[Rfam]
RNA sequence: AGUACCAAACUCUUUCUCCACCUCCACGUGGUAAUAGCUGGGAGUUCUUUCUUUGUGAAAAACUACAGACGUGGAAGG
Numbered sequence: 001a002g003u004a005c006c007a008a009a010c011u012c013u014u015u016c017u018c019c020a021c022c023u024c025c026a027c028g029u030g031g032u033a034a035u036a037g038c039u040g041g042g043a044g045u046u047c048u049u050u051c052u053u054u055g056u057g058a059a060a061a062a063c064u065a066c067a068g069a070c071g072u073g074g075a076a077g078g
Stems, first nucleotide, its partner, number of pairs: 011078006018071001020032003043064004048059002051057001
drz-agam-1 ribozyme: a 78-nucleotide RNA sequence from Hermetia illucens. Rfam links the family to the GO term catalytic activity. The source organism's lineage runs through Eukaryota, Metazoa, Eumetazoa, Panarthropoda and Hermetia. On this family, see Webb et al., Science 2009: "Widespread occurrence of self-cleaving ribozymes". The family has 7 seed sequences and 10,507 matches in Rfam 15.1.